[Rfam]
RNA sequence: GCUUGAAAAAGGCAAACCUGUCGAAAGGCAGGGACGCAAAGCCAAGGGUCUAAUGCUGUUUUUACAGCGAUGACAGCCGGUUGCCGGG
Numbered sequence: 001g002c003u004u005g006a007a008a009a010a011g012g013c014a015a016a017c018c019u020g021u022c023g024a025a026a027g028g029c030a031g032g033g034a035c036g037c038a039a040a041g042c043c044a045a046g047g048g049u050c051u052a053a054u055g056c057u058g059u060u061u062u063u064a065c066a067g068c069g070a071u072g073a074c075a076g077c078c079g080g081u082u083g084c085c086g087g088g
Stems, first nucleotide, its partner, number of pairs: 012037002017032006040082004046078002048074003055068004

The record is an 88-nucleotide sequence from Dethiobacter alkaliphilus, which matches "c-di-GMP-I riboswitch aptamer" in Rfam. The organism belongs to Dethiobacter alkaliphilus, within Bacteria. The family's consensus secondary structure is taken from published work. The match comes from Rfam's covariance-model search (83 bits).